This 193-nucleotide RNA from Vitis vinifera belongs to the Rfam family "MIR159 microRNA precursor family".
Pairs were carried over by alignment from the consensus structure, which was predicted with WAR.
On this family, see Sunkar and Zhu, Plant Cell 2004: "Novel and stress-regulated microRNAs and other small RNAs from Arabidopsis".
RNA sequence: GGGGGAUUGAACAAGCUGCCUUCAUCCCAAAAUCAAAAGAGUAGAAGGUGUUACAUCUGCUGGUUCAUGGAUACCUUUGUAGUGUACAGAUUAAUAUAUCUAAUGUCCACUUUAAGGGUUUGCAUGAAUGGGGAGAUGAGGUUGCCUUCUUCACUUAUAAUUUGGUUUGAAGGGAGCUCUGAUAGUCCUUCUC
Numbered sequence: 001g002g003g004g005g006a007u008u009g010a011a012c013a014a015g016c017u018g019c020c021u022u023c024a025u026c027c028c029a030a031a032a033u034c035a036a037a038a039g040a041g042u043a044g045a046a047g048g049u050g051u052u053a054c055a056u057c058u059g060c061u062g063g064u065u066c067a068u069g070g071a072u073a074c075c076u077u078u079g080u081a082g083u084g085u086a087c088a089g090a091u092u093a094a095u096a097u098a099u100c101u102a103a104u105g106u107c108c109a110c111u112u113u114a115a116g117g118g119u120u121u122g123c124a125u126g127a128a129u130g131g132g133g134a135g136a137u138g139a140g141g142u143u144g145c146c147u148u149c150u151u152c153a154c155u156u157a158u159a160a161u162u163u164g165g166u167u168u169g170a171a172g173g174g175a176g177c178u179c180u181g182a183u184a185g186u187c188c189u190u191c192u193c
Base pairs, nucleotide, nucleotide: 014178015177016176017175019173020172023169024168027165028164029163036156057135058134060132061131066126067125068124069123074118